[Rfam]
RNA sequence: UGUAUAAUAAAAUGCUCAGUUCUGCACUGUGCUGCCUUCCACUGGUUAAGGCCUCCAACAGCAAACACCUGCCUAGGCAGAGGAUGUCCCUUUGCCACUCGCAGAGGGGCAGCACUGUCCUGGCCAACAUUUA
Numbered sequence: 001u002g003u004a005u006a007a008u009a010a011a012a013u014g015c016u017c018a019g020u021u022c023u024g025c026a027c028u029g030u031g032c033u034g035c036c037u038u039c040c041a042c043u044g045g046u047u048a049a050g051g052c053c054u055c056c057a058a059c060a061g062c063a064a065a066c067a068c069c070u071g072c073c074u075a076g077g078c079a080g081a082g083g084a085u086g087u088c089c090c091u092u093u094g095c096c097a098c099u100c101g102c103a104g105a106g107g108g109g110c111a112g113c114a115c116u117g118u119c120c121u122g123g124c125c126a127a128c129a130u131u132u133a
Stems, first nucleotide, its partner, number of pairs: 002052001011043001013041002017034004076125003081121002084118003092112005098107002
RNA: Small nucleolar RNA SNORA47
Organism: Octodon degus